[Rfam]
RNA sequence: GGUAGUAGCAAAUACUCGAGAGGGGCCCUCGGGGGCUGCCGUGGAGAAGGGUUUCUUGUGAACAGCCGUUGUCCAAGAGUCAGUCGAUCCUAAGCCCGGGGAGAGAUCCUCGUACCACGGGCGAAGGCGUUUUCGAAUCGCCCAUGGGGCGAGAGGGAAUCCGGUCCGUAUUCCGGAACCCGACGCGGAACCGCUCCCUAGUGUUCGGGGCUCUUUUGUCUCGUCCGGGCGACCGGAAUGAACUCGAAGAAGCCGCCGGGGGGUCCGGGAAGAGUUCUCUUUUCUCUGUGAGCGUUGUACGUCCCUGGAAUCCUCUAGCCGGGCGAUAGGGACGCGAGCGCGAAGAGCACCGCUCGUUGCGGCGGUGUCCGUGACCCCCACGCGGACCUUGAAAAUUCGAGAGAGGGCCACGCGGAGUCUUCGCGUCGGUUCGUACCGAUAUCCGCAGCAGGUCUCCGAGGUGAGCAGCCUCUAGCCGCA
Numbered sequence: 001g002g003u004a005g006u007a008g009c010a011a012a013u014a015c016u017c018g019a020g021a022g023g024g025g026c027c028c029u030c031g032g033g034g035g036c037u038g039c040c041g042u043g044g045a046g047a048a049g050g051g052u053u054u055c056u057u058g059u060g061a062a063c064a065g066c067c068g069u070u071g072u073c074c075a076a077g078a079g080u081c082a083g084u085c086g087a088u089c090c091u092a093a094g095c096c097c098g099g100g101g102a103g104a105g106a107u108c109c110u111c112g113u114a115c116c117a118c119g120g121g122c123g124a125a126g127g128c129g130u131u132u133u134c135g136a137a138u139c140g141c142c143c144a145u146g147g148g149g150c151g152a153g154a155g156g157g158a159a160u161c162c163g164g165u166c167c168g169u170a171u172u173c174c175g176g177a178a179c180c181c182g183a184c185g186c187g188g189a190a191c192c193g194c195u196c197c198c199u200a201g202u203g204u205u206c207g208g209g210g211c212u213c214u215u216u217u218g219u220c221u222c223g224u225c226c227g228g229g230c231g232a233c234c235g236g237a238a239u240g241a242a243c244u245c246g247a248a249g250a251a252g253c254c255g256c257c258g259g260g261g262g263g264u265c266c267g268g269g270a271a272g273a274g275u276u277c278u279c280u281u282u283u284c285u286c287u288g289u290g291a292g293c294g295u296u297g298u299a300c301g302u303c304c305c306u307g308g309a310a311u312c313c314u315c316u317a318g319c320c321g322g323g324c325g326a327u328a329g330g331g332a333c334g335c336g337a338g339c340g341c342g343a344a345g346a347g348c349a350c351c352g353c354u355c356g357u358u359g360c361g362g363c364g365g366u367g368u369c370c371g372u373g374a375c376c377c378c379c380a381c382g383c384g385g386a387c388c389u390u391g392a393a394a395a396u397u398c399g400a401g402a403g404a405g406g407g408c409c410a411c412g413c414g415g416a417g418u419c420u421u422c423g424c425g426u427c428g429g430u431u432c433g434u435a436c437c438g439a440u441a442u443c444c445g446c447a448g449c450a451g452g453u454c455u456c457c458g459a460g461g462u463g464a465g466c467a468g469c470c471u472c473u474a475g476c477c478g479c480a
Stems, first nucleotide, its partner, number of pairs: 015033006034477004043457004049437002054078005063071002085433003089156002094150002096112001098110001100109003119143006160177005180429004218419001220417002222414002225236004243401006253385003259379005266371002269287001271285003292341005302332006311323003348367007443452002459471004
Eukaryotic large subunit ribosomal RNA: a 480-nucleotide part of an RNA from Aphis glycines. The organism belongs to Aphis, within Eukaryota. It scores 2526 bits against the family's covariance model. Rfam links the family to the GO terms structural constituent of ribosome and ribosome.